A member of the RNA family "U1 spliceosomal RNA" from Tupaia belangeri, 161 nucleotides long. Rfam links the family to the GO terms mRNA 5'-splice site recognition, pre-mRNA 5'-splice site binding and U1 snRNP. Its Rfam clan is "U1 clan". Rfam describes the family as follows. U1 is a small nuclear RNA (snRNA) component of the spliceosome (involved in pre-mRNA splicing). Its 5' end forms complementary base pairs with the 5' splice junction, thus defining the 5' donor site of an intron. The family's RNA type in Rfam is spliceosomal small nuclear RNA. It scores 89 bits against the family's covariance model. The organism belongs to Tupaia belangeri, within Eukaryota.
RNA sequence: AUGCUUACCUGGCAGGGGAGAUACUGUGAUCCUGAAGGUGAUUUUUUCCAGAGUGAGGCUUAUCCAUUGCACUCUGGGUGUACUGACCCCCGCCAUCCCCCCAAAUGUGGGAAACUCGAUGGCAUAAUUUGUCGUAGUGGAGGCCCGUGGUUGGGCUUUCC
Numbered sequence: 001a002u003g004c005u006u007a008c009c010u011g012g013c014a015g016g017g018g019a020g021a022u023a024c025u026g027u028g029a030u031c032c033u034g035a036a037g038g039u040g041a042u043u044u045u046u047u048c049c050a051g052a053g054u055g056a057g058g059c060u061u062a063u064c065c066a067u068u069g070c071a072c073u074c075u076g077g078g079u080g081u082a083c084u085g086a087c088c089c090c091c092g093c094c095a096u097c098c099c100c101c102c103a104a105a106u107g108u109g110g111g112a113a114a115c116u117c118g119a120u121g122g123c124a125u126a127a128u129u130u131g132u133c134g135u136a137g138u139g140g141a142g143g144c145c146c147g148u149g150g151u152u153g154g155g156c157u158u159u160c161c
Base pairs, nucleotide, nucleotide: 012123013122015120016049017048018047019046020045021044023042025040026039027038051090053088055087057084058083061080062079063078064077065076093118095116096114098111100110101109142161143160147156148155
Dot-bracket structure: ...........((.(((((((.(.(((..........))).).)))))).(.(.(.((..(((((..........)))))..))..)).)..(.((.(.((.......)))..).).).).))..................((...((......))...))